Bacterial RNase P class A: a 388-nucleotide sequence from Bacteroides sp. CAG:927. Lineage of the source: Bacteria > Bacteroidota > Bacteroidia > Bacteroidales > Bacteroides. The family's consensus secondary structure is taken from published work. Ribonuclease P (RNase P) is a ubiquitous endoribonuclease, found in archaea, bacteria and eukarya as well as chloroplasts and mitochondria. Its best characterised activity is the generation of mature 5'-ends of tRNAs by cleaving the 5'-leader elements of precursor-tRNAs. Cellular RNase Ps are ribonucleoproteins.

[Rfam]
RNA sequence: GCAGCCGGGCAUUUCGUCGCUCACCGAUGAAUAUGCGGUGUGAGGAAAGUCCGGGCAACACAGAGCACCAUAUUUCUUAACGGGAAGCUGUGGGUGACCGCAGAGUAGUGUGACAGAAAAUAACCGCCGCGGCCUUUUAGGCCAGGUAAGGGUGAAAAGGUGAGGUAAGAGCUCACCGGGCCGCACAGCAAUGUGCGGUGCCGCAUGCCUUAUGGGUUGCAAGGCCAAGUACACCGACAUUCAAGGGCUGCUCGUCCAUUGUCGGGGGGUAGGCUGCUUAAGCCUUGCAGGUGACUGCAGGCUCAGAUAAAUGACGAAACGUCGUGGUGUCCCCGUGAAAGGGAAGUGCCAUGGCCGACAUAACCCGGCUUAUCGCCCGGCUGCUUUU
Numbered sequence: 001g002c003a004g005c006c007g008g009g010c011a012u013u014u015c016g017u018c019g020c021u022c023a024c025c026g027a028u029g030a031a032u033a034u035g036c037g038g039u040g041u042g043a044g045g046a047a048a049g050u051c052c053g054g055g056c057a058a059c060a061c062a063g064a065g066c067a068c069c070a071u072a073u074u075u076c077u078u079a080a081c082g083g084g085a086a087g088c089u090g091u092g093g094g095u096g097a098c099c100g101c102a103g104a105g106u107a108g109u110g111u112g113a114c115a116g117a118a119a120a121u122a123a124c125c126g127c128c129g130c131g132g133c134c135u136u137u138u139a140g141g142c143c144a145g146g147u148a149a150g151g152g153u154g155a156a157a158a159g160g161u162g163a164g165g166u167a168a169g170a171g172c173u174c175a176c177c178g179g180g181c182c183g184c185a186c187a188g189c190a191a192u193g194u195g196c197g198g199u200g201c202c203g204c205a206u207g208c209c210u211u212a213u214g215g216g217u218u219g220c221a222a223g224g225c226c227a228a229g230u231a232c233a234c235c236g237a238c239a240u241u242c243a244a245g246g247g248c249u250g251c252u253c254g255u256c257c258a259u260u261g262u263c264g265g266g267g268g269g270u271a272g273g274c275u276g277c278u279u280a281a282g283c284c285u286u287g288c289a290g291g292u293g294a295c296u297g298c299a300g301g302c303u304c305a306g307a308u309a310a311a312u313g314a315c316g317a318a319a320c321g322u323c324g325u326g327g328u329g330u331c332c333c334c335g336u337g338a339a340a341g342g343g344a345a346g347u348g349c350c351a352u353g354g355c356c357g358a359c360a361u362a363a364c365c366c367g368g369c370u371u372a373u374c375g376c377c378c379g380g381c382u383g384c385u386u387u388u
Stems, first nucleotide, its partner, number of pairs: 001384010011373001012319007020042001022040005047371003051368005056219004063253004068215005073087005088103001090101004104210002108208002110204003124151002126147003131143005159177006179201001180199008223275004234265005245257004282302004287298004